RNA sequence: GUGGGGGUGGCCCAGCCUGGUAAGGCGUUAGACUGCUAAUCUAAUGUCCGUACGGACUCGCGAGUUCGAAUCUCGCCCCCCACG
Numbered sequence: 001g002u003g004g005g006g007g008u009g010g011c012c013c014a015g016c017c018u019g020g021u022a023a024g025g026c027g028u029u030a031g032a033c034u035g036c037u038a039a040u041c042u043a044a045u046g047u048c049c050g051u052a053c054g055g056a057c058u059c060g061c062g063a064g065u066u067c068g069a070a071u072c073u074c075g076c077c078c079c080c081c082a083c084g
Stems, first nucleotide, its partner, number of pairs: 001083007010026003028044005060076005
The record is an 84-nucleotide RNA sequence from a Methanomassiliicoccales archaeon, which matches "tRNA" in Rfam. The family's consensus secondary structure is taken from published work. By type it is a transfer RNA. The source organism's lineage runs through Archaea, Methanobacteriati, Thermoplasmatota, Thermoplasmata and Methanomassiliicoccales.